[Rfam]
RNA: MarS sRNA
RNA sequence: AUGCGAUGAGUCGAAUAAUUCUACUUUUGUAGAAUUUCGAAGCUAAGGAGUGCUGGGAAAUUGAGUUUUCCGCGCAGGAAGCGUGAGCAUUUGUCAAAAUGUGUGAACCUUUUUGACACACUUUUAGUGCCUUAAAAAGCCCUUGUAAAAGGGCUUUUUU
Numbered sequence: 001a002u003g004c005g006a007u008g009a010g011u012c013g014a015a016u017a018a019u020u021c022u023a024c025u026u027u028u029g030u031a032g033a034a035u036u037u038c039g040a041a042g043c044u045a046a047g048g049a050g051u052g053c054u055g056g057g058a059a060a061u062u063g064a065g066u067u068u069u070c071c072g073c074g075c076a077g078g079a080a081g082c083g084u085g086a087g088c089a090u091u092u093g094u095c096a097a098a099a100u101g102u103g104u105g106a107a108c109c110u111u112u113u114u115g116a117c118a119c120a121c122u123u124u125u126a127g128u129g130c131c132u133u134a135a136a137a138a139g140c141c142c143u144u145g146u147a148a149a150a151g152g153g154c155u156u157u158u159u160u
Stems, first nucleotide, its partner, number of pairs: 012039004019034006045133004049091004073083003092118008119129004138155007